The family of this 283-nucleotide part of an RNA from Babesia microti is "Eukaryotic large subunit ribosomal RNA".
Lineage of the source: Eukaryota > Apicomplexa > Aconoidasida > Babesia > Babesia microti.
Its family is annotated with structural constituent of ribosome and ribosome in the Gene Ontology.

RNA sequence: GAGUCUAGCACCUGUGCGAGUGUUUGGGCUGAAACCCCGUACGCGAAAUGAAAGUGAUAACAGGGAUGCGUGGGAUUUUUUCCGCGUUGCACCUGUGGCCGACCGCAAGUCGCGGCUUGAGUCAGAGCAUAUGUGCUAGGACCCGAAAGAUGGUGAACUAUGCCUGAGUAGGAUGAAGUCAGGCGAAAGCCUGAUGGAGGUCCGUCGCGAUACUGACGUGCAAAUCGUUCGUCAAACUUGGGUAUAGGGGCGAAAGACUAAUCGAACCAUCUAGUAGCUGGUU
Numbered sequence: 001g002a003g004u005c006u007a008g009c010a011c012c013u014g015u016g017c018g019a020g021u022g023u024u025u026g027g028g029c030u031g032a033a034a035c036c037c038c039g040u041a042c043g044c045g046a047a048a049u050g051a052a053a054g055u056g057a058u059a060a061c062a063g064g065g066a067u068g069c070g071u072g073g074g075a076u077u078u079u080u081u082c083c084g085c086g087u088u089g090c091a092c093c094u095g096u097g098g099c100c101g102a103c104c105g106c107a108a109g110u111c112g113c114g115g116c117u118u119g120a121g122u123c124a125g126a127g128c129a130u131a132u133g134u135g136c137u138a139g140g141a142c143c144c145g146a147a148a149g150a151u152g153g154u155g156a157a158c159u160a161u162g163c164c165u166g167a168g169u170a171g172g173a174u175g176a177a178g179u180c181a182g183g184c185g186a187a188a189g190c191c192u193g194a195u196g197g198a199g200g201u202c203c204g205u206c207g208c209g210a211u212a213c214u215g216a217c218g219u220g221c222a223a224a225u226c227g228u229u230c231g232u233c234a235a236a237c238u239u240g241g242g243u244a245u246a247g248g249g250g251c252g253a254a255a256g257a258c259u260a261a262u263c264g265a266a267c268c269a270u271c272u273a274g275u276a277g278c279u280g281g282u283u
Stems, first nucleotide, its partner, number of pairs: 005139007013131005020044003025039004030034001048055002060096005068087006098122002100119003103115003142281002145278001149271006158247011169235001171203004178195007207232004212228002215226002249259002